Rfam assigns this 134-nucleotide RNA sequence to the family "Small nucleolar RNA snoR74". It is annotated as an H/ACA-box small nucleolar RNA.
RNA sequence: UAAAAAGCAGGGUCCUAUUGCCUUAUUGUGAAUGGGCCUCUCGUAAACGUCAGGGAAAUCAAUUGUGUAUUGUUAUUGGGUGAACCACUUGAGUUUUCUCUAUGAUGGCAUGUUCAGUAAACGAUGCUACAUUG
Numbered sequence: 001u002a003a004a005a006a007g008c009a010g011g012g013u014c015c016u017a018u019u020g021c022c023u024u025a026u027u028g029u030g031a032a033u034g035g036g037c038c039u040c041u042c043g044u045a046a047a048c049g050u051c052a053g054g055g056a057a058a059u060c061a062a063u064u065g066u067g068u069a070u071u072g073u074u075a076u077u078g079g080g081u082g083a084a085c086c087a088c089u090u091g092a093g094u095u096u097u098c099u100c101u102a103u104g105a106u107g108g109c110a111u112g113u114u115c116a117g118u119a120a121a122c123g124a125u126g127c128u129a130c131a132u133u134g
Stems, first nucleotide, its partner, number of pairs: 005050001007048001011039002014036006067127008081116005
Record summary:
Gene Ontology terms of the family: RNA processing and nucleolus.